[Rfam]
RNA sequence: AAGAGCAGCCGGGUUAAUAAAAACUGAGAAAAUUGACUCGGAAAAAAA
Numbered sequence: 001a002a003g004a005g006c007a008g009c010c011g012g013g014u015u016a017a018u019a020a021a022a023a024c025u026g027a028g029a030a031a032a033u034u035g036a037c038u039c040g041g042a043a044a045a046a047a048a
Stems, first nucleotide, its partner, number of pairs: 009041001011039008